[Rfam]
RNA: Bacterial RNase P class A
Nucleotides: 420
Base pairs, nucleotide, nucleotide: 001416002415003414004413005412006411007410008409009408010407011405012370013369014368015367016366018364020044021043022042023041025039026038027037049403050402051401053400054399055398056397057396058244059243060242061241065272066271067270068269070240071239072238074236075100076099077098078097079096101125102123103122104121105120106119107118108117109116110115126235127234131233132232133229134228135227148175149174150171151170152169154167155166156165157164158163183201184200185199186198187197188196202224203222204221205220206219207218208217209216210215248294249293250292251291258285259284260283261282262281264276265275266274267273
Number, partner (000 for none) and nucleotide at each position: 001416u002415u003414u004413u005412g006411g007410g008409g009408c010407c011405g012370g013369g014368u015367c016366g017000c018364c019000g020044c021043u022042c023041c024000c025039u026038u027037g028000u029000u030000c031000u032000u033000u034000g035000a036000u037027c038026a039025a040000u041023g042022g043021a044020g045000a046000g047000g048000a049403a050402a051401g052000u053400c054399c055398g056397g057396a058244c059243a060242c061241c062000g063000c064000a065272g066271g067270g068269c069000a070240g071239g072238a073000u074236g075100c076099c077098g078097c079096a080000c081000g082000a083000g084000c085000u086000u087000c088000a089000c090000g091000g092000c093000a094000a095000g096079u097078g098077c099076g100075g101125g102123c103122a104121g105120u106119g107118c108117g109116u110115u111000u112000c113000a114000a115110a116109a117108c118107g119106c120105g121104c122103u123102g124000a125101c126235g127234g128000a129000a130000a131233g132232u133229g134228u135227c136000a137000c138000a139000g140000a141000g142000a143000a144000u145000a146000u147000a148175c149174c150171g151170c152169c153000a154167c155166g156165c157164g158163g159000g160000c161000a162000a163158c164157c165156g166155c167154g168000g169152g170151g171150u172000a173000a174149g175148g176000g177000u178000g179000a180000a181000a182000a183201g184200g185199u186198g187197g188196g189000g190000u191000a192000a193000g194000a195000g196188c197187c198186c199185a200184c201183c202224g203222c204221g205220u206219c207218g208217u209216c210215a211000g212000u213000a214000a215210u216209g217208a218207c219206g220205g221204c222203g223000g224202c225000a226000g227135g228134a229133c230000a231000a232132a233131c234127c235126c236074c237000u238072u239071c240070c241061g242060g243059u244058g245000c246000a247000a248294g249293g250292c251291a252000a253000a254000a255000u256000a257000g258285g259284u260283g261282g262281c263000u264276g265275g266274g267273c268000u269068g270067c271066u272065c273267g274266u275265c276264c277000u278000a279000u280000a281262g282261c283260c284259a285258c286000g287000g288000g289000u290000a291251u292250g293249c294248c295000g296000c297000a298000g299000c300000u301000u302000g303000u304000u305000u306000c307000g308000u309000u310000c311000g312000c313000g314000c315000a316000a317000g318000c319000g320000g321000g322000u323000g324000a325000c326000u327000c328000a329000g330000g331000c332000c333000a334000g335000g336000u337000c338000c339000g340000u341000c342000g343000c344000a345000a346000g347000g348000c349000g350000g351000a352000u353000u354000u355000g356000a357000g358000a359000g360000a361000a362000a363000u364018g365000a366016c367015g368014a369013c370012c371000g372000c373000a374000c375000g376000c377000c378000g379000c380000a381000a382000g383000g384000c385000g386000g387000g388000g389000c390000a391000c392000a393000a394000a395000a396057u397056c398055c399054g400053g401051c402050u403049u404000a405011c406000a407010g408009g409008c410007c411006c412005c413004a414003a415002a416001a417000c418000c419000a420000a